The family of this 122-nucleotide RNA sequence from Orycteropus afer is "Small nucleolar RNA SNORA70".
RNA sequence: AGGUAGCCAGUUAAGCUGAUGGUUCUCCUCUGUGGGGGCCAGUGUGCAAUGGCUGCAAGCAACAGCCUCCUCGGUGAUGAAUGAAGCCUGUUGGCACAUAUGGGUGGCCGGAAGGGACUGCC
Numbered sequence: 001a002g003g004u005a006g007c008c009a010g011u012u013a014a015g016c017u018g019a020u021g022g023u024u025c026u027c028c029u030c031u032g033u034g035g036g037g038g039c040c041a042g043u044g045u046g047c048a049a050u051g052g053c054u055g056c057a058a059g060c061a062a063c064a065g066c067c068u069c070c071u072c073g074g075u076g077a078u079g080a081a082u083g084a085a086g087c088c089u090g091u092u093g094g095c096a097c098a099u100a101u102g103g104g105u106g107g108c109c110g111g112a113a114g115g116g117a118c119u120g121c122c
Stems, first nucleotide, its partner, number of pairs: 003047003019043002022040001025037004073119003086105004
From the family's description: snoRNA U70 seems to be exclusive to mammals and is a member of the H/ACA class of snoRNA which contain H (ANANNA) and ACA box motifs. H/ACA box snoRNAs are involved in the conversion of uridines to pseudouridines (5-ribosyluracil) a constituent of structural RNAs (transfer, ribosomal, small nuclear, and small nucleolar). The organism belongs to Orycteropus afer, within Eukaryota. The family has 43 seed sequences and 5,173 matches in Rfam 15.1. The family's RNA type in Rfam is H/ACA-box small nucleolar RNA.